[Rfam]
RNA: Archaeal RNase P
RNA sequence: GGCAGAGGGAGCCCGACCCCCGUGCGCUCGACCCUCGCGGCGACGGCGCAUGAGGAAAGUCCCCCCACCCCCGGACGGGCGACCGGGCGCAAGCCCGGAGUCGGAGACGGCUGGCUCUGGAACAGCAACGAGACCCCCCGCCCCGACCCAUGAGGUGCGACGGCGACCUUCCGGUCGCCGCCGGCGUCUGCGGUCCGCCGCGGACGCGCGAACCGACCCGAGAGGGAAGGGAGUGAACCCACCGAGGGCCGCGGCUUCGCCGCGAGACGGGCGGGAACGGAUGGAACGGCGAAUCCUCGCCGGUGCAAGCCCGCGUCGACGGGCGGCCACCACGCGGCGGUCGCCCCGAUGGUAGUCCGGGUGCUCGCCUCGCGCGAGCGACCGGGGCAUGCGCCCCGCGACCGACGCGGACGCUCAGCCGAAUGUCGGGCCGAACAGAAGGGGGCUUACUCCCCUCAGCC
Numbered sequence: 001g002g003c004a005g006a007g008g009g010a011g012c013c014c015g016a017c018c019c020c021c022g023u024g025c026g027c028u029c030g031a032c033c034c035u036c037g038c039g040g041c042g043a044c045g046g047c048g049c050a051u052g053a054g055g056a057a058a059g060u061c062c063c064c065c066c067a068c069c070c071c072c073g074g075a076c077g078g079g080c081g082a083c084c085g086g087g088c089g090c091a092a093g094c095c096c097g098g099a100g101u102c103g104g105a106g107a108c109g110g111c112u113g114g115c116u117c118u119g120g121a122a123c124a125g126c127a128a129c130g131a132g133a134c135c136c137c138c139c140g141c142c143c144c145g146a147c148c149c150a151u152g153a154g155g156u157g158c159g160a161c162g163g164c165g166a167c168c169u170u171c172c173g174g175u176c177g178c179c180g181c182c183g184g185c186g187u188c189u190g191c192g193g194u195c196c197g198c199c200g201c202g203g204a205c206g207c208g209c210g211a212a213c214c215g216a217c218c219c220g221a222g223a224g225g226g227a228a229g230g231g232a233g234u235g236a237a238c239c240c241a242c243c244g245a246g247g248g249c250c251g252c253g254g255c256u257u258c259g260c261c262g263c264g265a266g267a268c269g270g271g272c273g274g275g276a277a278c279g280g281a282u283g284g285a286a287c288g289g290c291g292a293a294u295c296c297u298c299g300c301c302g303g304u305g306c307a308a309g310c311c312c313g314c315g316u317c318g319a320c321g322g323g324c325g326g327c328c329a330c331c332a333c334g335c336g337g338c339g340g341u342c343g344c345c346c347c348g349a350u351g352g353u354a355g356u357c358c359g360g361g362u363g364c365u366c367g368c369c370u371c372g373c374g375c376g377a378g379c380g381a382c383c384g385g386g387g388c389a390u391g392c393g394c395c396c397c398g399c400g401a402c403c404g405a406c407g408c409g410g411a412c413g414c415u416c417a418g419c420c421g422a423a424u425g426u427c428g429g430g431c432c433g434a435a436c437a438g439a440a441g442g443g444g445g446c447u448u449a450c451u452c453c454c455c456u457c458a459g460c461c
Stems, first nucleotide, its partner, number of pairs: 001461003005457005010451002012430006021052008057448003061445005066305004078301005083098005099112005113296002118292001120290001134280002137275007155260002309412001311410007